The record is an 80-nucleotide RNA from Aotus nancymaae, which matches "Small nucleolar RNA ZL8" in Rfam.
RNA sequence: UUGGAGUGGUAAUGAUCUGGUUAGACAAGGUCUCUGAGCUUUUUUCUGAGGAUCUUUGAAACCACCUGAUAUACUCUCCA
Numbered sequence: 001u002u003g004g005a006g007u008g009g010u011a012a013u014g015a016u017c018u019g020g021u022u023a024g025a026c027a028a029g030g031u032c033u034c035u036g037a038g039c040u041u042u043u044u045u046c047u048g049a050g051g052a053u054c055u056u057u058g059a060a061a062c063c064a065c066c067u068g069a070u071a072u073a074c075u076c077u078c079c080a
Stems, first nucleotide, its partner, number of pairs: 003079004007073002015070003019066003027056004031051004036046003
Dot-bracket structure: ..((((((......(((.(((.....((((((((.(((.....))).)))).)))).......))).))).))..)))).
Its family is annotated with nucleolus and RNA processing in the Gene Ontology. It is annotated as a C/D-box small nucleolar RNA.